[Rfam]
RNA sequence: GAAGCAGGCCAGGCCGCCGCUGAUGCCAAGGUGGCAACACAGGCAUUGGAGGAACGUCCGGACUGCACAGGGCAGCGUAGCAGGUAACACCUGCCCACCGUGAGGUGAGGAUCAGAGCAACAGAGACGAGUCGCCCCGCAGCGCGCUGCGGGGCGGGUGAAACGGGCAAUCUCUACGCGCAGCAAUACCAAAUAGGCAUGCGAUGAACUGGCUCCGGCGAGCAUGCGGGUAGGUAGCACCGAGCUGGCAGGGCGACCUGCCAGCCCAGAUUAAUGGCGGCCACGCGGCCAUGCACAUGGCCGUGCACAGAAUCCGGCGUAUCGGCCUGCUUCACAC
Numbered sequence: 001g002a003a004g005c006a007g008g009c010c011a012g013g014c015c016g017c018c019g020c021u022g023a024u025g026c027c028a029a030g031g032u033g034g035c036a037a038c039a040c041a042g043g044c045a046u047u048g049g050a051g052g053a054a055c056g057u058c059c060g061g062a063c064u065g066c067a068c069a070g071g072g073c074a075g076c077g078u079a080g081c082a083g084g085u086a087a088c089a090c091c092u093g094c095c096c097a098c099c100g101u102g103a104g105g106u107g108a109g110g111a112u113c114a115g116a117g118c119a120a121c122a123g124a125g126a127c128g129a130g131u132c133g134c135c136c137c138g139c140a141g142c143g144c145g146c147u148g149c150g151g152g153g154c155g156g157g158u159g160a161a162a163c164g165g166g167c168a169a170u171c172u173c174u175a176c177g178c179g180c181a182g183c184a185a186u187a188c189c190a191a192a193u194a195g196g197c198a199u200g201c202g203a204u205g206a207a208c209u210g211g212c213u214c215c216g217g218c219g220a221g222c223a224u225g226c227g228g229g230u231a232g233g234u235a236g237c238a239c240c241g242a243g244c245u246g247g248c249a250g251g252g253c254g255a256c257c258u259g260c261c262a263g264c265c266c267a268g269a270u271u272a273a274u275g276g277c278g279g280c281c282a283c284g285c286g287g288c289c290a291u292g293c294a295c296a297u298g299g300c301c302g303u304g305c306a307c308a309g310a311a312u313c314c315g316g317c318g319u320a321u322c323g324g325c326c327u328g329c330u331u332c333a334c335a336c
Stems, first nucleotide, its partner, number of pairs: 001332010011321001012281007020049008054319003058316005063182004070214004075178005080094005095109001096107004110173002115171002117167002131156011186235004196226006243264006250257002